[Rfam]
Annotation: Rfam assigns this 210-nucleotide RNA from a Rickettsiales bacterium to the family "permuted transfer-messenger RNA". The source organism's lineage runs through Bacteria, Pseudomonadati, Pseudomonadota, Alphaproteobacteria and Rickettsiales. The family's consensus secondary structure is taken from published work.
RNA sequence: GGCGAUAAACGCGGAACAGAAUAGGCGGAUUGGACCCGGGGGCGGAACCCGGCGGCUCCACCAAAGUGCGGUGUUAUUGCAGCGCAUUUUGGCGGGGCCGAAUUAGCAUCGACAAACGCAGUAAAGGUUUUAGCUUUCGUUCGGCAUGAUACCGCCGUGAUGGAUCAUCUUUAUAAAUGCAAACGAUAAUUUUGCACUUGUAGCUGCUAA
Numbered sequence: 001g002g003c004g005a006u007a008a009a010c011g012c013g014g015a016a017c018a019g020a021a022u023a024g025g026c027g028g029a030u031u032g033g034a035c036c037c038g039g040g041g042g043c044g045g046a047a048c049c050c051g052g053c054g055g056c057u058c059c060a061c062c063a064a065a066g067u068g069c070g071g072u073g074u075u076a077u078u079g080c081a082g083c084g085c086a087u088u089u090u091g092g093c094g095g096g097g098c099c100g101a102a103u104u105a106g107c108a109u110c111g112a113c114a115a116a117c118g119c120a121g122u123a124a125a126g127g128u129u130u131u132a133g134c135u136u137u138c139g140u141u142c143g144g145c146a147u148g149a150u151a152c153c154g155c156c157g158u159g160a161u162g163g164a165u166c167a168u169c170u171u172u173a174u175a176a177a178u179g180c181a182a183a184c185g186a187u188a189a190u191u192u193u194g195c196a197c198u199u200g201u202a203g204c205u206g207c208u209a210a
Stems, first nucleotide, its partner, number of pairs: 001141005014130004026118002030115003036052005053100007142157004